[Rfam]
RNA sequence: AUUUUUGGAUAAUCGCGUGGUAGUUUUCUACCAUGAGGAAAGUCCAUGCUAGCACUGGCUGAGAUGCCAGUAGUGUUUGUGCUAGGCGAAUCAAUAAGCCUAGGGACGCCCUUGGGCGUUACGGCGGUUAAAAUGGCUAAGUCUUUUGAUAUGUCAGAGUAGAUCUGAAAGUGCCACAGUGACGAAGUUUUUAUGGAAACGUAAAAAAUGGAACGCGGUAAACCCCUCAAGCUAGCAACCCAAACUUUGGUCGGGGCAUGGGAUGGAUGGAAAUGAACAGAAAUCCUGACUGUUUAGACAGUAGACAGAUGAUUAUCGAAGGUGGUAGAACCUAGUACCACUGGAACAAAACAUGGCUUACAGAA
Numbered sequence: 001a002u003u004u005u006u007g008g009a010u011a012a013u014c015g016c017g018u019g020g021u022a023g024u025u026u027u028c029u030a031c032c033a034u035g036a037g038g039a040a041a042g043u044c045c046a047u048g049c050u051a052g053c054a055c056u057g058g059c060u061g062a063g064a065u066g067c068c069a070g071u072a073g074u075g076u077u078u079g080u081g082c083u084a085g086g087c088g089a090a091u092c093a094a095u096a097a098g099c100c101u102a103g104g105g106a107c108g109c110c111c112u113u114g115g116g117c118g119u120u121a122c123g124g125c126g127g128u129u130a131a132a133a134u135g136g137c138u139a140a141g142u143c144u145u146u147u148g149a150u151a152u153g154u155c156a157g158a159g160u161a162g163a164u165c166u167g168a169a170a171g172u173g174c175c176a177c178a179g180u181g182a183c184g185a186a187g188u189u190u191u192u193a194u195g196g197a198a199a200c201g202u203a204a205a206a207a208a209u210g211g212a213a214c215g216c217g218g219u220a221a222a223c224c225c226c227u228c229a230a231g232c233u234a235g236c237a238a239c240c241c242a243a244a245c246u247u248u249g250g251u252c253g254g255g256g257c258a259u260g261g262g263a264u265g266g267a268u269g270g271a272a273a274u275g276a277a278c279a280g281a282a283a284u285c286c287u288g289a290c291u292g293u294u295u296a297g298a299c300a301g302u303a304g305a306c307a308g309a310u311g312a313u314u315a316u317c318g319a320a321g322g323u324g325g326u327a328g329a330a331c332c333u334a335g336u337a338c339c340a341c342u343g344g345a346a347c348a349a350a351a352c353a354u355g356g357c358u359u360a361c362a363g364a365a
Stems, first nucleotide, its partner, number of pairs: 004365003007361001008317007016035006040359003044356005049235005054071006077230003081226001082103006104122001105120006123225002126165004134156004141150003171223002173219003188207008239255003259288006289302005321342007
RNA: Bacterial RNase P class B
Organism: Streptococcus suis